[Rfam]
U11 spliceosomal RNA: a 137-nucleotide RNA from Geotrypetes seraphini.
RNA sequence: GAAGAGGGCUUCUGCUGUGUUUAGCAUGCGGGUUGAUUCGAUUUUCGGAUCUUUCUGUGCGGAAUCGACAUCAAGAGAUUUCGGAAGCAUAAUUUUUGCAGCUGGGGGUGUCAGUGAUCUCGCGUCCGGGCGCCCCC
Numbered sequence: 001g002a003a004g005a006g007g008g009c010u011u012c013u014g015c016u017g018u019g020u021u022u023a024g025c026a027u028g029c030g031g032g033u034u035g036a037u038u039c040g041a042u043u044u045u046c047g048g049a050u051c052u053u054u055c056u057g058u059g060c061g062g063a064a065u066c067g068a069c070a071u072c073a074a075g076a077g078a079u080u081u082c083g084g085a086a087g088c089a090u091a092a093u094u095u096u097u098g099c100a101g102c103u104g105g106g107g108g109u110g111u112c113a114g115u116g117a118u119c120u121c122g123c124g125u126c127c128g129g130g131c132g133c134c135c136c137c
Stems, first nucleotide, its partner, number of pairs: 008088005013026005027059006035051006060083007106135007114127001116126003
Dot-bracket structure: .......((((((((((....)))))((((((..((((((.....))))))..))))))(((((((..........)))))))))))).................(((((((.(.(((.....)))).)))))))..

The match comes from Rfam's covariance-model search (86 bits). Its family is annotated with mRNA 5'-splice site recognition, pre-mRNA 5'-splice site binding and U11 snRNP in the Gene Ontology.